[Rfam]
RNA sequence: AGCUUUUACGUGGUAUCAGUACUUUUCUCUCAUUAAGGGAAAGUGUGAGAAAAGUAGCAAGCAUUAGUAGAAUUAUAAACUUAAAAUAGACAGGUCUGAGGGACUGAACGUGUAUUUUCACUUCACUUCAUCAUCCAAGAAGUUGAAUCACUUGGUGUGUCUAUUUCAUUGCCUUUAAGUGAAAGAGUGGUACCCAAGCAAU
Numbered sequence: 001a002g003c004u005u006u007u008a009c010g011u012g013g014u015a016u017c018a019g020u021a022c023u024u025u026u027c028u029c030u031c032a033u034u035a036a037g038g039g040a041a042a043g044u045g046u047g048a049g050a051a052a053a054g055u056a057g058c059a060a061g062c063a064u065u066a067g068u069a070g071a072a073u074u075a076u077a078a079a080c081u082u083a084a085a086a087u088a089g090a091c092a093g094g095u096c097u098g099a100g101g102g103a104c105u106g107a108a109c110g111u112g113u114a115u116u117u118u119c120a121c122u123u124c125a126c127u128u129c130a131u132c133a134u135c136c137a138a139g140a141a142g143u144u145g146a147a148u149c150a151c152u153u154g155g156u157g158u159g160u161c162u163a164u165u166u167c168a169u170u171g172c173c174u175u176u177a178a179g180u181g182a183a184a185g186a187g188u189g190g191u192a193c194c195c196a197a198g199c200a201a202u
Stems, first nucleotide, its partner, number of pairs: 002020003007015003029142002033138002037134001039132001041128003047122001052118003069097003073093002098113001100111001102109001151198005157193005164185003167181004
The family of this 202-nucleotide RNA sequence from Tupaia belangeri is "Connexin-43 internal ribosome entry site (IRES)". Rfam describes the family as follows. This family represents the connexin-43 internal ribosome entry site (IRES) which allows cap independent translation during conditions such as heat shock and stress. Rfam links the family to the GO term ribosome binding. The family's consensus secondary structure is taken from published work. On this family, see Schiavi et al., FEBS Lett 1999: "Connexin43 mRNA contains a functional internal ribosome entry site". The match comes from Rfam's covariance-model search (137 bits).